RNA sequence: GCCUUGGUGGCGGAAUUGGUAGACGCGCACGACUCAAACUCGUGUUCUUCGGAGUGUGGGUUCGAUUCCCACCCAAGGUA
Numbered sequence: 001g002c003c004u005u006g007g008u009g010g011c012g013g014a015a016u017u018g019g020u021a022g023a024c025g026c027g028c029a030c031g032a033c034u035c036a037a038a039c040u041c042g043u044g045u046u047c048u049u050c051g052g053a054g055u056g057u058g059g060g061u062u063c064g065a066u067u068c069c070c071a072c073c074c075a076a077g078g079u080a
Stems, first nucleotide, its partner, number of pairs: 001079007010026003028044005056072005